[Rfam]
RNA sequence: CAGGCAGAUUCUUAACCACUGGACCACCAGGGAAGUCACUAAAUAAUAAAUUACUUUUUUCCCUGUGUUAUGAAGCACAGACAUGGUUAAUGGUGCAG
Numbered sequence: 001c002a003g004g005c006a007g008a009u010u011c012u013u014a015a016c017c018a019c020u021g022g023a024c025c026a027c028c029a030g031g032g033a034a035g036u037c038a039c040u041a042a043a044u045a046a047u048a049a050a051u052u053a054c055u056u057u058u059u060u061c062c063c064u065g066u067g068u069u070a071u072g073a074a075g076c077a078c079a080g081a082c083a084u085g086g087u088u089a090a091u092g093g094u095g096c097a098g
Stems, first nucleotide, its partner, number of pairs: 003012001025032001033060003075096001077094002